[Rfam]
RNA sequence: GAACCACUGACGAUACUCGUGAAUGUUC
Numbered sequence: 001g002a003a004c005c006a007c008u009g010a011c012g013a014u015a016c017u018c019g020u021g022a023a024u025g026u027u028c
Stems, first nucleotide, its partner, number of pairs: 001028004008023001010020004
This 28-nucleotide RNA belongs to the Rfam family "L19-Flavobacteria ribosomal protein leader". Rfam classes the family as a cis-regulatory leader.